[Rfam]
RNA sequence: AUAUAGGACCUUUUAGCUAUUGAACUGUUUUGUCACUCUCUGUCAAAGAACGAUUUGUUAUGAGUUAAAGAGGGAUAAAACAGUUGAACAGCUAAAACGUCCUAUAAC
Numbered sequence: 001a002u003a004u005a006g007g008a009c010c011u012u013u014u015a016g017c018u019a020u021u022g023a024a025c026u027g028u029u030u031u032g033u034c035a036c037u038c039u040c041u042g043u044c045a046a047a048g049a050a051c052g053a054u055u056u057g058u059u060a061u062g063a064g065u066u067a068a069a070g071a072g073g074g075a076u077a078a079a080a081c082a083g084u085u086g087a088a089c090a091g092c093u094a095a096a097a098c099g100u101c102c103u104a105u106a107a108c
Stems, first nucleotide, its partner, number of pairs: 002106005011097008020088002023085006029069004034064001049059004
The family of this 108-nucleotide RNA sequence from Plutella xylostella is "mir-8517 microRNA precursor family". Rfam links the family to the GO terms RISC complex and miRNA-mediated post-transcriptional gene silencing. A search with the family's covariance model found it, with a score of 85 bits.